[Rfam]
RNA sequence: GGAAAAUGGUUAAUAUUAGCCCUUUAUAUCAGUAAUGAUAUAAAUGCACCUCCUGAAUUGCUGGGAAACCCUAAAGCUGUUUUAACGACAACAUAACUAGAAAUAGUCAGUGUGAACGUUUAAAAAUAAAACAGAUGAAACAAUGGGCAAUCAGCAGCCGAGAUUCUGUUAAAUGGAUCGGGUUCAACGACUAUUCCAAACGGAAGUACACUCAAGCGAGUGGAAGUAGGAGGUAUCCUGUAGUAAAAUCUCAAAAUUCUUACAGGAUAAAGAUAUAGUCUGGUCUUACAUGAAAGUGUAAG
Numbered sequence: 001g002g003a004a005a006a007u008g009g010u011u012a013a014u015a016u017u018a019g020c021c022c023u024u025u026a027u028a029u030c031a032g033u034a035a036u037g038a039u040a041u042a043a044a045u046g047c048a049c050c051u052c053c054u055g056a057a058u059u060g061c062u063g064g065g066a067a068a069c070c071c072u073a074a075a076g077c078u079g080u081u082u083u084a085a086c087g088a089c090a091a092c093a094u095a096a097c098u099a100g101a102a103a104u105a106g107u108c109a110g111u112g113u114g115a116a117c118g119u120u121u122a123a124a125a126a127u128a129a130a131a132c133a134g135a136u137g138a139a140a141c142a143a144u145g146g147g148c149a150a151u152c153a154g155c156a157g158c159c160g161a162g163a164u165u166c167u168g169u170u171a172a173a174u175g176g177a178u179c180g181g182g183u184u185c186a187a188c189g190a191c192u193a194u195u196c197c198a199a200a201c202g203g204a205a206g207u208a209c210a211c212u213c214a215a216g217c218g219a220g221u222g223g224a225a226g227u228a229g230g231a232g233g234u235a236u237c238c239u240g241u242a243g244u245a246a247a248a249u250c251u252c253a254a255a256a257u258u259c260u261u262a263c264a265g266g267a268u269a270a271a272g273a274u275a276u277a278g279u280c281u282g283g284u285c286u287u288a289c290a291u292g293a294a295a296g297u298g299u300a301a302g
Stems, first nucleotide, its partner, number of pairs: 005024002008021005028039003048234005054228002059156006069147003157183002187281001189280005236267008287300005
Rfam assigns this 302-nucleotide RNA from Limnoraphis robusta to the family "Group I catalytic intron". Group I catalytic introns are large self-splicing ribozymes. They catalyse their own excision from mRNA, tRNA and rRNA precursors in a wide range of organisms. It scores 91 bits against the family's covariance model.